[Rfam]
RNA sequence: CUGUGACCCUGUUCAAGUAAUCCAGGAUAGGCUGUUUUUGUCUGCUCCGGCCUGUCCAGGAAGACUUGCACUGGGGGGCCG
Number, nucleotide and partner (000 for none) at each position: 001c000002u000003g079004u078005g000006a000007c075008c074009c073010u000011g071012u070013u000014c068015a067016a066017g065018u064019a000020a000021u061022c060023c000024a000025g057026g056027a055028u054029a053030g052031g051032c050033u049034g000035u000036u000037u000038u000039u000040g000041u000042c000043u000044g000045c000046u000047c000048c000049g033050g032051c031052c030053u029054g028055u027056c026057c025058a000059g000060g022061a021062a000063g000064a018065c017066u016067u015068g014069c000070a012071c011072u000073g009074g008075g007076g000077g000078g004079c003080c000081g000
RNA: mir-26 microRNA precursor family
Organism: Gadus morhua